[Rfam]
RNA sequence: AUUUGGAGUGAUGAAACUUUCACCUUAGGUAGAUGCAGCAGACCGUUUUGGUCUUUUACCGUAUCUGCCAAUGCUCGGGUUUGUCAUAGUUACACUGACCAUGU
Numbered sequence: 001a002u003u004u005g006g007a008g009u010g011a012u013g014a015a016a017c018u019u020u021c022a023c024c025u026u027a028g029g030u031a032g033a034u035g036c037a038g039c040a041g042a043c044c045g046u047u048u049u050g051g052u053c054u055u056u057u058a059c060c061g062u063a064u065c066u067g068c069c070a071a072u073g074c075u076c077g078g079g080u081u082u083g084u085c086a087u088a089g090u091u092a093c094a095c096u097g098a099c100c101a102u103g104u
Stems, first nucleotide, its partner, number of pairs: 001104002004101003
RNA: Small nucleolar RNA SNORD46
Organism: Falco tinnunculus